Acido-Lenti-1 RNA: a 46-nucleotide sequence from Desulfonema limicola. Rfam classes the family as a small RNA. The organism belongs to Desulfonema, within Bacteria.

RNA sequence: ACCGGCAGUAAACUGCCGGUCUAUUUUAUGUCGUCCCUAUGGGACU
Numbered sequence: 001a002c003c004g005g006c007a008g009u010a011a012a013c014u015g016c017c018g019g020u021c022u023a024u025u026u027u028a029u030g031u032c033g034u035c036c037c038u039a040u041g042g043g044a045c046u
Base pairs, nucleotide, nucleotide: 001020002019003018004017005016006015007014008013033045034044035043036042037041